[Rfam]
RNA sequence: UAUCGAUAAUGGCAAACCCGGGGAAAUCCGGCGACGCAAAGCUACAGGGGCUACCUCCAGCAAAUGGACAAGCCAGCCAGCUGCCGAA
Numbered sequence: 001u002a003u004c005g006a007u008a009a010u011g012g013c014a015a016a017c018c019c020g021g022g023g024a025a026a027u028c029c030g031g032c033g034a035c036g037c038a039a040a041g042c043u044a045c046a047g048g049g050g051c052u053a054c055c056u057c058c059a060g061c062a063a064a065u066g067g068a069c070a071a072g073c074c075a076g077c078c079a080g081c082u083g084c085c086g087a088a
Stems, first nucleotide, its partner, number of pairs: 012037002018031005040082004047078002049074003056068004
RNA: c-di-GMP-I riboswitch aptamer
Organism: Brevibacillus borstelensis